[Rfam]
RNA sequence: CUAUCUUGGUGGCGCACUUGGGGACAUUCUGGGUGGGCUUACGCGUAUUUCUAAAUUAUAGAAUCAUUGUGAAAAAGCCCGCUUAUUUAGCGGGCUUUUUUGU
Numbered sequence: 001c002u003a004u005c006u007u008g009g010u011g012g013c014g015c016a017c018u019u020g021g022g023g024a025c026a027u028u029c030u031g032g033g034u035g036g037g038c039u040u041a042c043g044c045g046u047a048u049u050u051c052u053a054a055a056u057u058a059u060a061g062a063a064u065c066a067u068u069g070u071g072a073a074a075a076a077g078c079c080c081g082c083u084u085a086u087u088u089a090g091c092g093g094g095c096u097u098u099u100u101u102g103u
Stems, first nucleotide, its partner, number of pairs: 009042004015035004020030004076096007
RNA: Tryptophan operon leader
Organism: Vibrio paucivorans